U2 spliceosomal RNA: a 190-nucleotide sequence from Dactylonectria macrodidyma. The base pairs follow the family's consensus structure, which is taken from published work. Lineage of the source: Eukaryota > Ascomycota > saccharomyceta > Hypocreales > Dactylonectria. Its family is annotated with mRNA branch site recognition, pre-mRNA branch point binding and U2 snRNP in the Gene Ontology. About the family: U2 is a small nuclear RNA (snRNA) component of the spliceosome (involved in pre-mRNA splicing). Complementary binding between U2 snRNA (in an area lying towards the 5' end but 3' to hairpin I) and the branchpoint sequence (BPS) of the intron results the bulging out of an unpaired adenosine, on the BPS, which initiates a nucleophilic attack at the intronic 5' splice site, thus starting the first of two transesterification reactions that mediate splicing.
[Rfam]
RNA sequence: UUAGCUUUCUUUGCCAAAUGGCUUAGAUCAAGUGUAGUAUCUGUUCUUUUCAGUUUAAUCUCUGUCACGUCUCCAUGUGGGACAACCUUGAUUGCAAUUUUUGGUUCUCGGGUAGUCUCCUCUGUGCUUGCACACGAUUCCACCCACUGUGUCCCUGGUUCUACACUACCUCCAGGUGAUGCGACCGACU
Numbered sequence: 001u002u003a004g005c006u007u008u009c010u011u012u013g014c015c016a017a018a019u020g021g022c023u024u025a026g027a028u029c030a031a032g033u034g035u036a037g038u039a040u041c042u043g044u045u046c047u048u049u050u051c052a053g054u055u056u057a058a059u060c061u062c063u064g065u066c067a068c069g070u071c072u073c074c075a076u077g078u079g080g081g082a083c084a085a086c087c088u089u090g091a092u093u094g095c096a097a098u099u100u101u102u103g104g105u106u107c108u109c110g111g112g113u114a115g116u117c118u119c120c121u122c123u124g125u126g127c128u129u130g131c132a133c134a135c136g137a138u139u140c141c142a143c144c145c146a147c148u149g150u151g152u153c154c155c156u157g158g159u160u161c162u163a164c165a166c167u168a169c170c171u172c173c174a175g176g177u178g179a180u181g182c183g184a185c186c187g188a189c190u
Stems, first nucleotide, its partner, number of pairs: 008027003013022003048067001051064003069083005110145004115140001123134004148183006154176005